[Rfam]
RNA sequence: UAUACGCCUCCAAAAUAAACAGCUUUAAAUACCAGAAGAAAAGCACCCAGACCUAACAAAAUUAGGUGAUAAUCAUUGUUGCCACAAUUUUGUUGUUAUUAUCGA
Numbered sequence: 001u002a003u004a005c006g007c008c009u010c011c012a013a014a015a016u017a018a019a020c021a022g023c024u025u026u027a028a029a030u031a032c033c034a035g036a037a038g039a040a041a042a043g044c045a046c047c048c049a050g051a052c053c054u055a056a057c058a059a060a061a062u063u064a065g066g067u068g069a070u071a072a073u074c075a076u077u078g079u080u081g082c083c084a085c086a087a088u089u090u091u092g093u094u095g096u097u098a099u100u101a102u103c104g105a
Stems, first nucleotide, its partner, number of pairs: 065103006072097001074095002
Dot-bracket structure: ................................................................((((((.(.((..................)).)))))))..
The record is a 105-nucleotide RNA sequence from Carex littledalei, which matches "Antisense RNA which regulates isiA expression" in Rfam. On this family, see Duhring et al., Proc Natl Acad Sci U S A 2006: "An internal antisense RNA regulates expression of the photosynthesis gene isiA". It scores 60 bits against the family's covariance model. The organism belongs to Carex subgen. Euthyceras, within Eukaryota.